[Rfam]
RNA sequence: UGGCGAAGGUCCCAGCAGGGAGGUGUGAACGCUAUGAAUUGAAACCUCUCUAACAAAUGAACUAAUGCCUUCGCAAAUCCAUUUGCCGAAUCGUAGGAUGCCCAAAUACUCUAUUUUUGGAGCGUCUUGAACCCUCGGCUACAUUUUC
Numbered sequence: 001u002g003g004c005g006a007a008g009g010u011c012c013c014a015g016c017a018g019g020g021a022g023g024u025g026u027g028a029a030c031g032c033u034a035u036g037a038a039u040u041g042a043a044a045c046c047u048c049u050c051u052a053a054c055a056a057a058u059g060a061a062c063u064a065a066u067g068c069c070u071u072c073g074c075a076a077a078u079c080c081a082u083u084u085g086c087c088g089a090a091u092c093g094u095a096g097g098a099u100g101c102c103c104a105a106a107u108a109c110u111c112u113a114u115u116u117u118u119g120g121a122g123c124g125u126c127u128u129g130a131a132c133c134c135u136c137g138g139c140u141a142c143a144u145u146u147u148c
Stems, first nucleotide, its partner, number of pairs: 003074007011020003025050001027048001033042001034040001085139005097126002100123002102120005
This 148-nucleotide sequence from Hibiscus syriacus belongs to the Rfam family "Small nucleolar RNA snoR145". Rfam 15.1 lists 286 matches to the family in 194 species. The base pairs follow the family's consensus structure, which was predicted with mfold. Rfam links the family to the GO terms nucleolus and RNA processing. By type it is an H/ACA-box small nucleolar RNA.